This 237-nucleotide RNA sequence from Lacrimispora xylanisolvens belongs to the Rfam family "Group II catalytic intron D1-D4-6".
RNA sequence: GGAAACCCUGCCAGAAAAGAAACUAACCAAUCCAUCUGUACCGAGUCCUUGGAGCCGAAUCGGCAACGACGGGUUUAAGCGUAGGAACGGGAACAGCAGAGCCGGAGCGAAAGCGAAGUGAUUGAGCUGGGAAAUGUGUAUCAGUUGAAGAGGUCGAGGACUUUUCCUUAUCCGCAGACUGCAUUGUACUUUAUCGUAAUGGUGAGAUUUGUACGACUCUUCCCCAGUCUGAGAACC
Numbered sequence: 001g002g003a004a005a006c007c008c009u010g011c012c013a014g015a016a017a018a019g020a021a022a023c024u025a026a027c028c029a030a031u032c033c034a035u036c037u038g039u040a041c042c043g044a045g046u047c048c049u050u051g052g053a054g055c056c057g058a059a060u061c062g063g064c065a066a067c068g069a070c071g072g073g074u075u076u077a078a079g080c081g082u083a084g085g086a087a088c089g090g091g092a093a094c095a096g097c098a099g100a101g102c103c104g105g106a107g108c109g110a111a112a113g114c115g116a117a118g119u120g121a122u123u124g125a126g127c128u129g130g131g132a133a134a135u136g137u138g139u140a141u142c143a144g145u146u147g148a149a150g151a152g153g154u155c156g157a158g159g160a161c162u163u164u165u166c167c168u169u170a171u172c173c174g175c176a177g178a179c180u181g182c183a184u185u186g187u188a189c190u191u192u193a194u195c196g197u198a199a200u201g202g203u204g205a206g207a208u209u210u211g212u213a214c215g216a217c218u219c220u221u222c223c224c225c226a227g228u229c230u231g232a233g234a235a236c237c
Stems, first nucleotide, its partner, number of pairs: 012038004019032002024205001026203002041090003046086004050081002052076005060069003123231001124229001126228006147222006153179003158173003184216006193208003

Pairs were carried over by alignment from the consensus structure.
NCBI's taxonomy places the organism under Bacteria, Bacillati, Bacillota, Lachnospirales, Lacrimispora.
From the family's description: Group II introns are found in rRNA, tRNA and mRNA of organelles in fungi, plants and protists, and also in mRNA in bacteria.
On this family, see Bonen and Vogel, Trends Genet 2001: "The ins and outs of group II introns".